The family of this 106-nucleotide RNA from Brassica rapa is "Small nucleolar RNA Z279/snoR105/snoR108".
It is annotated as a C/D-box small nucleolar RNA.
For this family Rfam cites "Experimental RNomics: identification of 140 candidates for small non-messenger RNAs in the plant Arabidopsis thaliana" (Marker et al., Curr Biol, 2002).
This family includes the plant snoRNAs known as Z279, snoR105 and snoR108.
Nucleotides: 106
Stems, first nucleotide, its partner, number of pairs: 001106004014097003018094002024042005045084003049080002051077002061075001063073002
Number, partner (000 for none) and nucleotide at each position: 001106g002105g003104g004103a005000a006000a007000u008000g009000a010000g011000g012000a013000g014097u015096g016095g017000u018094u019093a020000u021000u022000u023000u024042c025041u026040c027039g028038c029000u030000u031000u032000u033000a034000u035000u036000a037000u038028g039027c040026g041025a042024g043000a044000a045084g046083a047082g048000c049080g050079u051077u052076u053000c054000g055000c056000u057000c058000c059000g060000c061075c062000u063073g064072u065000u066000a067000c068000g069000a070000c071000a072064a073063u074000u075061g076052a077051g078000c079050g080049c081000u082047c083046u084045c085000c086000u087000u088000u089000g090000u091000c092000u093019u094018a095016c096015c097014a098000u099000c100000u101000g102000a103004u104003c105002c106001c